[Rfam]
RNA sequence: GAGCCUGAAAUGAUGUUAUGAAUUCAUGUCUCUUCUCUGAGAUCUGUCAUGGAGACAGCUAGAUGCAUUUCUGAUCAGGCUU
Number, nucleotide and partner (000 for none) at each position: 001g082002a081003g080004c079005c078006u000007g000008a000009a000010a000011u000012g000013a000014u000015g000016u000017u000018a000019u000020g000021a000022a000023u000024u000025c000026a000027u000028g000029u000030c000031u000032c000033u000034u000035c000036u000037c000038u000039g000040a000041g000042a000043u000044c000045u000046g000047u000048c000049a000050u000051g000052g000053a000054g000055a000056c000057a000058g000059c000060u000061a000062g000063a000064u000065g000066c000067a000068u000069u000070u000071c000072u000073g000074a000075u000076c000077a000078g005079g004080c003081u002082u001